[Rfam]
RNA sequence: GCCUUUCCUAAGGGGAGGCCCGGGGCCUGAGAUGCUGUUUACACAGCAGACCCUUUGAACCUGAUCCGGAUAAUACCGGCGUAGGGAUAGGGCUUCGCAACACU
Numbered sequence: 001g002c003c004u005u006u007c008c009u010a011a012g013g014g015g016a017g018g019c020c021c022g023g024g025g026c027c028u029g030a031g032a033u034g035c036u037g038u039u040u041a042c043a044c045a046g047c048a049g050a051c052c053c054u055u056u057g058a059a060c061c062u063g064a065u066c067c068g069g070a071u072a073a074u075a076c077c078g079g080c081g082u083a084g085g086g087a088u089a090g091g092g093c094u095u096c097g098c099a100a101c102a103c104u
Stems, first nucleotide, its partner, number of pairs: 006092005011054004017027004034047005060085004066079004
Dot-bracket structure: .....(((((((((..((((...))))......(((((....)))))...)))).....((((..((((......))))..))))..)))))............
RNA: TPP riboswitch aptamer (THI element)
Organism: Pseudomaricurvus sp. HS19